[Rfam]
RNA sequence: CACGUCAGCGCGCUUUGCUGACGUGGACACAAAUAGCGCUUACGUGACGCUAUUUGUGUCAACGUCAGCAAAGCGCGCUGACGUGG
Numbered sequence: 001c002a003c004g005u006c007a008g009c010g011c012g013c014u015u016u017g018c019u020g021a022c023g024u025g026g027a028c029a030c031a032a033a034u035a036g037c038g039c040u041u042a043c044g045u046g047a048c049g050c051u052a053u054u055u056g057u058g059u060c061a062a063c064g065u066c067a068g069c070a071a072a073g074c075g076c077g078c079u080g081a082c083g084u085g086g
Stems, first nucleotide, its partner, number of pairs: 001085021023063002026060013041046001
RNA: MIR7486 microRNA precursor family